[Rfam]
RNA sequence: AAGUAGAACAGUAUAUGGGGAUGUUUCCUGGACAUUCAAUGUCAGGUAUACAGGAAAAAUAAAAGGGGGACAAAAUCCCCCUUAUAAUUUUUAACU
Dot-bracket structure: .........(((...(..((.......))..).))).........................(((((((((.....)))))))).)...........